[Rfam]
Shown here is a 103-nucleotide RNA sequence from Coffea canephora, a member of the family "mir-399 microRNA precursor family". Rfam links the family to the GO terms miRNA-mediated post-transcriptional gene silencing and RISC complex.

Nucleotides: 103
Base pairs, nucleotide, nucleotide: 005099006098007097008096009095011093012092013091014090015089016088018086019085021083022082023081024080027077028076029075030074031073032072033071034070035069
Number, partner (000 for none) and nucleotide at each position: 001000a002000g003000a004000c005099g006098a007097a008096u009095g010000u011093c012092a013091g014090g015089g016088c017000c018086g019085u020000u021083c022082u023081c024080c025000u026000u027077u028076g029075g030074c031073a032072g033071a034070a035069a036000u037000g038000c039000u040000u041000c042000a043000g044000c045000u046000u047000a048000u049000g050000g051000a052000a053000a054000u055000g056000a057000a058000u059000g060000g061000a062000g063000a064000u065000g066000g067000u068000g069035u070034u071033u072032c073031u074030g075029c076028c077027a078000a079000a080024g081023g082022a083021g084000a085019a086018u087000u088016g089015c090014c091013c092012u093011g094000c095009c096008a097007u098006u099005c100000u101000g102000g103000a
mir-399 was identified in both Arabidopsis thaliana and Oryza sativa computationally and was later experimentally verified. mir-399 is thought to target mRNAs coding for a phosphatase transporter. The mature sequence is excised from the 3' arm of the hairpin.